[Rfam]
RNA sequence: ACUGUGGAGCGUCAUACAAACCAAAGUAGCCAAGGCAAAAUGGGACGCUACGAAGCAGUAA
Numbered sequence: 001a002c003u004g005u006g007g008a009g010c011g012u013c014a015u016a017c018a019a020a021c022c023a024a025a026g027u028a029g030c031c032a033a034g035g036c037a038a039a040a041u042g043g044g045a046c047g048c049u050a051c052g053a054a055g056c057a058g059u060a061a
Base pairs, nucleotide, nucleotide: 001059002058003057004056005055009048010047011046012045013044021043022042023041029036030035